[Rfam]
RNA sequence: GGGAAAUGAUGAGUGGUCAAAACUCGCAUUUUAUGUGAGAAUUGGGUGUCCAACCUAAGCCUGGUUACGACAAUAUGGGCACUCCCAUUUGUUACCGAUCCGAUCCC
Numbered sequence: 001g002g003g004a005a006a007u008g009a010u011g012a013g014u015g016g017u018c019a020a021a022a023c024u025c026g027c028a029u030u031u032u033a034u035g036u037g038a039g040a041a042u043u044g045g046g047u048g049u050c051c052a053a054c055c056u057a058a059g060c061c062u063g064g065u066u067a068c069g070a071c072a073a074u075a076u077g078g079g080c081a082c083u084c085c086c087a088u089u090u091g092u093u094a095c096c097g098a099u100c101c102g103a104u105c106c107c
Stems, first nucleotide, its partner, number of pairs: 001107004014097004023039005044084007062077002064074002
RNA: Small nucleolar RNA Z279/snoR105/snoR108
Organism: Papaver somniferum